[Rfam]
RNA sequence: GUAUGACAUGAUGGUAUCAUCUUUCGGGACUGACCUAAUAUGAGGAUAUUUAACUUAACUGAUCAUAC
Number, nucleotide and partner (000 for none) at each position: 001g068002u067003a066004u065005g064006a063007c000008a000009u000010g000011a000012u000013g000014g000015u000016a000017u000018c000019a000020u000021c000022u000023u000024u000025c000026g000027g000028g000029a000030c000031u000032g000033a000034c000035c000036u000037a000038a000039u000040a000041u000042g000043a000044g000045g000046a000047u000048a000049u000050u000051u000052a000053a000054c000055u000056u000057a000058a000059c000060u000061g000062a000063u006064c005065a004066u003067a002068c001

The record is a 68-nucleotide RNA sequence from Labeo rohita, which matches "Small nucleolar RNA SNORD2" in Rfam. It scores 70 bits against the family's covariance model. Rfam 15.1 lists 1,116 matches to the family in 660 species. The family's consensus secondary structure was predicted with WAR. Rfam classes the family as a C/D-box small nucleolar RNA. Lineage of the source: Eukaryota > Deuterostomia > Actinopteri > Otomorpha > Labeo. Gene Ontology terms of the family: nucleolus and RNA processing.